[Rfam]
RNA sequence: CAUCGGCAGUUUUUGCCGGGUCCGGCUGAAGGCCCGUCCCCCGCCUAACCGGACCGUGCGGCAGCCCCUCCCCCUCUCCGGGCUGCCGCAUAUUUCAGAAAGGCCGCCGUGGUUCCCCUCCACCACGGCGGCAUUUU
Numbered sequence: 001c002a003u004c005g006g007c008a009g010u011u012u013u014u015g016c017c018g019g020g021u022c023c024g025g026c027u028g029a030a031g032g033c034c035c036g037u038c039c040c041c042c043g044c045c046u047a048a049c050c051g052g053a054c055c056g057u058g059c060g061g062c063a064g065c066c067c068c069u070c071c072c073c074c075u076c077u078c079c080g081g082g083c084u085g086c087c088g089c090a091u092a093u094u095u096c097a098g099a100a101a102g103g104c105c106g107c108c109g110u111g112g113u114u115c116c117c118c119u120c121c122a123c124c125a126c127g128g129c130g131g132c133a134u135u136u137u
Base pairs, nucleotide, nucleotide: 021053022052023051024050025049027047031045032044033043056091057090058089059088060087061086062085063084064083065082066081104131105130106129107128108127109126110125111124112123113122
The record is a 137-nucleotide sequence from Pseudaminobacter soli, which matches "Alphaproteobacterial sRNA ar7" in Rfam. For this family Rfam cites "A survey of sRNA families in alpha-proteobacteria" (del Val et al., RNA Biol, 2012). The pairing is the family consensus, mapped onto this sequence. The match comes from Rfam's covariance-model search (101 bits). NCBI's taxonomy places the organism under Bacteria, Pseudomonadati, Alphaproteobacteria, Hyphomicrobiales, Pseudaminobacter. By type it is a small RNA.